[Rfam]
RNA sequence: GCCGAGCUAUGUUGCGCUAGCUUGUGACUCAAGCGAGGGCAUUGAAGUGGUAGAACAAUGGUUCGACGCAUCUGGCAGGGUUGGCAGUUGCAAUCUGCUGGCUCGCCCAUUCCAAGUUGUGAGUUGUGUCAUGUGGUCCAUGCGAAGGCUUGGGCUGCGUGUCUCUUAGAGCGGAGGGCACAGCGUGAGGCUGGUUUCACAGAGCAGCGAAAACCUCCCGCUCGCGGCAGUGGAAGGAUAACGAGUCGGUGCUCCACCAACCCAAAUUGCCUGAUGGGUUGAAACCAGUUGAACCACCACUUCU
Numbered sequence: 001g002c003c004g005a006g007c008u009a010u011g012u013u014g015c016g017c018u019a020g021c022u023u024g025u026g027a028c029u030c031a032a033g034c035g036a037g038g039g040c041a042u043u044g045a046a047g048u049g050g051u052a053g054a055a056c057a058a059u060g061g062u063u064c065g066a067c068g069c070a071u072c073u074g075g076c077a078g079g080g081u082u083g084g085c086a087g088u089u090g091c092a093a094u095c096u097g098c099u100g101g102c103u104c105g106c107c108c109a110u111u112c113c114a115a116g117u118u119g120u121g122a123g124u125u126g127u128g129u130c131a132u133g134u135g136g137u138c139c140a141u142g143c144g145a146a147g148g149c150u151u152g153g154g155c156u157g158c159g160u161g162u163c164u165c166u167u168a169g170a171g172c173g174g175a176g177g178g179c180a181c182a183g184c185g186u187g188a189g190g191c192u193g194g195u196u197u198c199a200c201a202g203a204g205c206a207g208c209g210a211a212a213a214c215c216u217c218c219c220g221c222u223c224g225c226g227g228c229a230g231u232g233g234a235a236g237g238a239u240a241a242c243g244a245g246u247c248g249g250u251g252c253u254c255c256a257c258c259a260a261c262c263c264a265a266a267u268u269g270c271c272u273g274a275u276g277g278g279u280u281g282a283a284a285c286c287a288g289u290u291g292a293a294c295c296a297c298c299a300c301u302u303c304u
Base pairs, nucleotide, nucleotide: 001040002039003038004023005022006021007020008019009018028037029036030035044303045302046301047300048299049298050297051296053294056291057290059287060286062283063282064281065280066279069276070275071274072273074271075270076269077268078263079262080261081260082259083258084257087255090252093250098249099248100247101246102245103244104243105242107237108236110235111234112233113232114231116228117227118226119225120224121223122222123221124220126165128163130161131160132159133158134157135156136155137154138153139152140151142149143148166171173218174217175216176215177214184209185208186207191202192201193200
Notes: A member of the RNA family "Plant signal recognition particle RNA" from Prunus avium, 304 nucleotides long. A reference for the family is Batey et al. (2001), "Structural and energetic analysis of RNA recognition by a universally conserved protein from the signal recognition particle", J Mol Biol. Taxonomically the source falls in Prunus (Eukaryota, Streptophyta, Euphyllophyta, Spermatophyta).